[Rfam]
RNA: c-di-AMP riboswitch aptamer (ydaO/yuaA leader)
Nucleotides: 188
Base pairs, nucleotide, nucleotide: 011173012172013171014170018061019060020059021058022057023056024055025054062168063167064166065165066164067163072106107153108152109151115130116129117128118127133147134146135145136144
Number, partner (000 for none) and nucleotide at each position: 001000c002000c003000g004000g005000a006000u007000g008000g009000a010000a011173c012172g013171c014170c015000g016000a017000a018061u019060c020059c021058u022057g023056c024055c025054g026000c027000c028000g029000u030000c031000c032000g033000g034000g035000a036000a037000c038000c039000c040000g041000a042000c043000c044000a045000c046000a047000u048000c049000u050000c051000g052000u053000a054025c055024g056023g057022c058021a059020g060019g061018a062168g063167c064166g065165g066164g067163g068000g069000a070000c071000c072106c073000a074000g075000g076000u077000a078000a079000g080000c081000g082000c083000c084000g085000a086000u087000c088000c089000g090000g091000u092000a093000u094000c095000c096000g097000g098000a099000g100000c101000g102000g103000c104000u105000c106072g107153g108152g109151g110000u111000g112000a113000a114000g115130u116129c117128g118127c119000a120000u121000u122000c123000g124000u125000a126000u127118g128117c129116g130115a131000c132000c133147g134146g135145g136144c137000a138000u139000c140000u141000c142000c143000a144136g145135c146134c147133c148000g149000a150000a151109c152108c153107c154000g155000a156000c157000a158000g159000c160000u161000c162000a163067c164066u165065u166064c167063g168062c169000a170014g171013g172012c173011g174000g175000c176000g177000g178000a179000g180000a181000g182000g183000a184000a185000a186000u187000c188000a